Rfam assigns this 52-nucleotide RNA sequence from Ruegeria pomeroyi to the family "serC leader".
Rfam classes the family as a cis-regulatory leader.
It scores 75 bits against the family's covariance model.
The literature on the family includes a 2005 paper in Genome Biol by Corbino et al., "Evidence for a second class of S-adenosylmethionine riboswitches and other regulatory RNA motifs in alpha-proteobacteria".
Taxonomically the source falls in Ruegeria pomeroyi (Bacteria, Pseudomonadati, Pseudomonadota, Alphaproteobacteria).
From the family's description: This family is a putative regulatory RNA structure that is found upstream of the serC-serA operon in some alpha-proteobacteria.
[Rfam]
RNA sequence: CGGCGGGACACCCCUCCCCAACGAGGGGCGCUUAUCUGGAAGGAUAGCAUUC
Numbered sequence: 001c002g003g004c005g006g007g008a009c010a011c012c013c014c015u016c017c018c019c020a021a022c023g024a025g026g027g028g029c030g031c032u033u034a035u036c037u038g039g040a041a042g043g044a045u046a047g048c049a050u051u052c
Base pairs, nucleotide, nucleotide: 011028012027013026014025015024016023032047033046034045035044036043037042